The record is a 98-nucleotide RNA sequence from Tupaia belangeri, which matches "mir-544 microRNA precursor family" in Rfam. Pairs were carried over by alignment from the consensus structure, which was predicted with RNAalifold. On this family, see Chiang et al., Genes Dev 2010: "Mammalian microRNAs: experimental evaluation of novel and previously annotated genes". NCBI's taxonomy places the organism under Eukaryota, Gnathostomata, Dipnotetrapodomorpha, Tupaia, Tupaia belangeri.
[Rfam]
RNA sequence: AACACCUGGUGAUCUUGUUAAAAUGCAGAUUCUCACCCAGUAGGUCUGGGAUGGAGUCCAAGAUUCUGCAUUUCUAACAAGCGCCUGGGUGAUGCAGA
Number, nucleotide and partner (000 for none) at each position: 001a000002a000003c091004a090005c089006c000007u000008g000009g085010u000011g000012a000013u000014c081015u080016u079017g078018u077019u076020a075021a073022a072023a071024u000025g069026c068027a067028g066029a065030u000031u063032c062033u061034c000035a000036c000037c000038c000039a000040g000041u000042a000043g000044g000045u000046c000047u000048g000049g000050g000051a000052u000053g000054g000055a000056g000057u000058c000059c000060a000061a033062g032063a031064u000065u029066c028067u027068g026069c025070a000071u023072u022073u021074c000075u020076a019077a018078c017079a016080a015081g014082c000083g000084c000085c009086u000087g000088g000089g005090u004091g003092a000093u000094g000095c000096a000097g000098a000